RNA sequence: GCGUCAUCCGCGGGAGCCCCGGAAGCAGGGGCUGAGAUGCCGGUAAGGCCCGGCGAACCGUAGAACCUGAUCCGGUUAGCACCGGCGCGAGGAAAGGAUUCCGUCCGUCAU
Numbered sequence: 001g002c003g004u005c006a007u008c009c010g011c012g013g014g015a016g017c018c019c020c021g022g023a024a025g026c027a028g029g030g031g032c033u034g035a036g037a038u039g040c041c042g043g044u045a046a047g048g049c050c051c052g053g054c055g056a057a058c059c060g061u062a063g064a065a066c067c068u069g070a071u072c073c074g075g076u077u078a079g080c081a082c083c084g085g086c087g088c089g090a091g092g093a094a095a096g097g098a099u100u101c102c103g104u105c106c107g108u109c110a111u
Stems, first nucleotide, its partner, number of pairs: 006099004011060003016032005039054005066092003072085004